[Rfam]
The record is a 113-nucleotide RNA from Vannielia litorea, which matches "TPP riboswitch aptamer (THI element)" in Rfam.
Lineage of the source: Bacteria > Pseudomonadota > Rhodobacterales > Paracoccaceae > Vannielia.
The base pairs follow the family's consensus structure, which is taken from published work.
RNA sequence: CGCCUCACCUCGGGGUGCCCCUGAAUUGGGGGCUGAGAUGCGGCUUGAUGCGCCGCGAACCCGUUGAACCUGAACCGGCUAGAACCGGCGGAGGGAAGGUUUCGAGUCUCCUC
Numbered sequence: 001c002g003c004c005u006c007a008c009c010u011c012g013g014g015g016u017g018c019c020c021c022u023g024a025a026u027u028g029g030g031g032g033c034u035g036a037g038a039u040g041c042g043g044c045u046u047g048a049u050g051c052g053c054c055g056c057g058a059a060c061c062c063g064u065u066g067a068a069c070c071u072g073a074a075c076c077g078g079c080u081a082g083a084a085c086c087g088g089c090g091g092a093g094g095g096a097a098g099g100u101u102u103c104g105a106g107u108c109u110c111c112u113c
Stems, first nucleotide, its partner, number of pairs: 007100004011063004016057001017033005040056005069094003075088004